[Rfam]
RNA sequence: CUGGCCACCUGGCUCUGAGAACUGAAUUCCAUAGGCCGUGAGCUUUAGCAAUGCCCUAGGAAUUCAGUUCUAGCGCCCGGCUGAGCUGU
Numbered sequence: 001c002u003g004g005c006c007a008c009c010u011g012g013c014u015c016u017g018a019g020a021a022c023u024g025a026a027u028u029c030c031a032u033a034g035g036c037c038g039u040g041a042g043c044u045u046u047a048g049c050a051a052u053g054c055c056c057u058a059g060g061a062a063u064u065c066a067g068u069u070c071u072a073g074c075g076c077c078c079g080g081c082u083g084a085g086c087u088g089u
Stems, first nucleotide, its partner, number of pairs: 008080002011077003018071008034055003

Notes
The record is an 89-nucleotide RNA from Dipodomys ordii, which matches "mir-146 microRNA precursor family" in Rfam. The source organism's lineage runs through Eukaryota, Euteleostomi, Mammalia, Glires and Dipodomys. The family's consensus secondary structure was predicted with WAR. It scores 83 bits against the family's covariance model.